The family of this 157-nucleotide sequence from Rhododendron simsii is "U12 minor spliceosomal RNA". Pairs were carried over by alignment from the consensus structure. Its family is annotated with U12 snRNP, pre-mRNA branch point binding and mRNA branch site recognition in the Gene Ontology. The organism belongs to Rhododendron, within Eukaryota.

[Rfam]
RNA sequence: UCGCCUUAAACUAAUGAGUAAGGGAAACCAAAUGAGCGGUGGGAGCUGCUCGCCGUGCAUGACAUAAACUUUGUUGCGCACGAAUUUUUGGAGGGGUUAUAGGCUUGCAGAGCGGAGACGCUGCUUACUUUGCAGAACUCGUUCGUGCGGGCCUCCC
Numbered sequence: 001u002c003g004c005c006u007u008a009a010a011c012u013a014a015u016g017a018g019u020a021a022g023g024g025a026a027a028c029c030a031a032a033u034g035a036g037c038g039g040u041g042g043g044a045g046c047u048g049c050u051c052g053c054c055g056u057g058c059a060u061g062a063c064a065u066a067a068a069c070u071u072u073g074u075u076g077c078g079c080a081c082g083a084a085u086u087u088u089u090g091g092a093g094g095g096g097u098u099a100u101a102g103g104c105u106u107g108c109a110g111a112g113c114g115g116a117g118a119c120g121c122u123g124c125u126u127a128c129u130u131u132g133c134a135g136a137a138c139u140c141g142u143u144c145g146u147g148c149g150g151g152c153c154u155c156c157c
Base pairs, nucleotide, nucleotide: 004023005022006021007020008019033052034051035050036049037048038047039046055079056078057077058076059075095157096156101154102153103152104151105150106149107148110143111142115140116139117138121135122134123133124132